The family of this 67-nucleotide RNA from Texcoconibacillus texcoconensis is "Bacillaceae-1 RNA". By type it is a small RNA. Pairs were carried over by alignment from the consensus structure, which is taken from published work.
[Rfam]
RNA sequence: GAUUAAGGAACUUAGGCUAAAACCGCAACGUCCUGUUGCAACGCCUAAGCCACCACAUCCAUGUGGA
Numbered sequence: 001g002a003u004u005a006a007g008g009a010a011c012u013u014a015g016g017c018u019a020a021a022a023c024c025g026c027a028a029c030g031u032c033c034u035g036u037u038g039c040a041a042c043g044c045c046u047a048a049g050c051c052a053c054c055a056c057a058u059c060c061a062u063g064u065g066g067a
Stems, first nucleotide, its partner, number of pairs: 011049007025039005053066004